[Rfam]
RNA sequence: GAUGGAUUUAAUCAAAUCCAUUAACUUAAUUUUUAUGUAGUGGAUGGAUUUGAUGAAUUUUUUU
Number, nucleotide and partner (000 for none) at each position: 001g000002a000003u000004g060005g059006a058007u057008u056009u000010a000011a054012u053013c052014a051015a050016a049017u048018c047019c046020a045021u044022u043023a000024a000025c040026u039027u000028a000029a036030u000031u000032u000033u000034u000035a000036u029037g000038u000039a026040g025041u000042g000043g022044a021045u020046g019047g018048a017049u016050u015051u014052g013053a012054u011055g000056a008057a007058u006059u005060u004061u000062u000063u000064u000
The family of this 64-nucleotide RNA sequence from Lathyrus oleraceus is "MIR5291 microRNA precursor family". NCBI's taxonomy places the organism under Eukaryota, Magnoliopsida, Mesangiospermae, Fabales, Lathyrus. The family's consensus secondary structure was predicted with RNAalifold. Rfam 15.1 lists 168 matches to the family in 5 species.